[Rfam]
RNA sequence: UGCCAAUUAUCCCGAAUUGGUUUUUUCAUACUUACUCCUACCAAGAGUAAAUAACAACCUUCAUUUCCACCACAGACGACGGUCGUGGUGGUUUUUUUGUUUAGGUUCUAGUUUUUGCUAUCAAUUGACUAGGAGAAGUGAACGUUCUUUAAGAAUUUGUCAUUUCAAAUUUACGGAACCGCAAGAAACGAUUUGCUUCUUCCUCUAACUGAGUAAUUUCUUCUUCUGUUAACUCUUCCGUAGUAAUGUGAAUAUGUAACUCUUUUUGUGUGCUUGUCAUAGGUGCCUGAUGAUUGAUCUCUGUUUGUUGGGUGCGGCCCAUUAAAUAGUCCAAGGAAACAGAAAAAUAGUCUGCUAUUUUUAAAAGAUUCUCUACUUUAGGCGAAGAGGUAUCCCAACGACGAAUUUGUCCAUUGGAAAUGCCGACGUUUCUUUCUAAUUGGGCGAGGGUUAAUUGCUUUGACUGAGCUAGUUGUUUAAUGCGAGAAAUUAAGGUCAUUUCAAGUCCUCCUUGCGUUUUCCGUUUGCUAAUUUUAAAUUAGCGUAAAAGCGAAUGGUUGUCAAUUGUGAGCGUGUAAUAAGAAGGUGAACAUCUCAUGAGUGAUUUUUUAGAAAAUUUCCGAUG
Numbered sequence: 001u002g003c004c005a006a007u008u009a010u011c012c013c014g015a016a017u018u019g020g021u022u023u024u025u026u027c028a029u030a031c032u033u034a035c036u037c038c039u040a041c042c043a044a045g046a047g048u049a050a051a052u053a054a055c056a057a058c059c060u061u062c063a064u065u066u067c068c069a070c071c072a073c074a075g076a077c078g079a080c081g082g083u084c085g086u087g088g089u090g091g092u093u094u095u096u097u098u099g100u101u102u103a104g105g106u107u108c109u110a111g112u113u114u115u116u117g118c119u120a121u122c123a124a125u126u127g128a129c130u131a132g133g134a135g136a137a138g139u140g141a142a143c144g145u146u147c148u149u150u151a152a153g154a155a156u157u158u159g160u161c162a163u164u165u166c167a168a169a170u171u172u173a174c175g176g177a178a179c180c181g182c183a184a185g186a187a188a189c190g191a192u193u194u195g196c197u198u199c200u201u202c203c204u205c206u207a208a209c210u211g212a213g214u215a216a217u218u219u220c221u222u223c224u225u226c227u228g229u230u231a232a233c234u235c236u237u238c239c240g241u242a243g244u245a246a247u248g249u250g251a252a253u254a255u256g257u258a259a260c261u262c263u264u265u266u267u268g269u270g271u272g273c274u275u276g277u278c279a280u281a282g283g284u285g286c287c288u289g290a291u292g293a294u295u296g297a298u299c300u301c302u303g304u305u306u307g308u309u310g311g312g313u314g315c316g317g318c319c320c321a322u323u324a325a326a327u328a329g330u331c332c333a334a335g336g337a338a339a340c341a342g343a344a345a346a347a348u349a350g351u352c353u354g355c356u357a358u359u360u361u362u363a364a365a366a367g368a369u370u371c372u373c374u375a376c377u378u379u380a381g382g383c384g385a386a387g388a389g390g391u392a393u394c395c396c397a398a399c400g401a402c403g404a405a406u407u408u409g410u411c412c413a414u415u416g417g418a419a420a421u422g423c424c425g426a427c428g429u430u431u432c433u434u435u436c437u438a439a440u441u442g443g444g445c446g447a448g449g450g451u452u453a454a455u456u457g458c459u460u461u462g463a464c465u466g467a468g469c470u471a472g473u474u475g476u477u478u479a480a481u482g483c484g485a486g487a488a489a490u491u492a493a494g495g496u497c498a499u500u501u502c503a504a505g506u507c508c509u510c511c512u513u514g515c516g517u518u519u520u521c522c523g524u525u526u527g528c529u530a531a532u533u534u535u536a537a538a539u540u541a542g543c544g545u546a547a548a549a550g551c552g553a554a555u556g557g558u559u560g561u562c563a564a565u566u567g568u569g570a571g572c573g574u575g576u577a578a579u580a581a582g583a584a585g586g587u588g589a590a591c592a593u594c595u596c597a598u599g600a601g602u603g604a605u606u607u608u609u610u611a612g613a614a615a616a617u618u619u620c621c622g623a624u625g
Stems, first nucleotide, its partner, number of pairs: 002021007023616005032050006054561006060554003064550003067091007075084003092138003095134005101128004106123001109120004140147002153172007173524006180516006190507006196390007204382005211373003215370005225343006233335002243286003247281005256273003259269002289299003301329007309321005344361007395417004400411004418501005423495002428490007439481009448470002451467003455463002526544008564579005581610007590602002593600002